Overview:
Rfam assigns this 101-nucleotide RNA sequence to the family "skipping-rope RNA". It is one of the family's seed sequences.
Nucleotides: 101
Stems, first nucleotide, its partner, number of pairs: 001101008011028005019086003030070001031063003075093005
Number, partner (000 for none) and nucleotide at each position: 001101a002100c003099g004098c005097u006096a007095a008094g009000a010000g011028g012027u013026g014025g015024g016000a017000a018000a019086g020085g021084u022000a023000c024015c025014c026013c027012a028011c029000g030070c031063g032062c033061c034000c035000u036000a037000g038000c039000g040000g041000u042000u043000a044000a045000c046000u047000a048000g049000c050000g051000g052000u053000u054000a055000a056000c057000u058000a059000g060000c061033g062032g063031u064000u065000a066000a067000a068000a069000a070030g071000a072000g073000a074000u075093g076092c077091g078090g079089g080000a081000c082000a083000c084021g085020c086019c087000g088000a089079c090078c091077c092076g093075c094008c095007u096006u097005a098004g099003c100002g101001u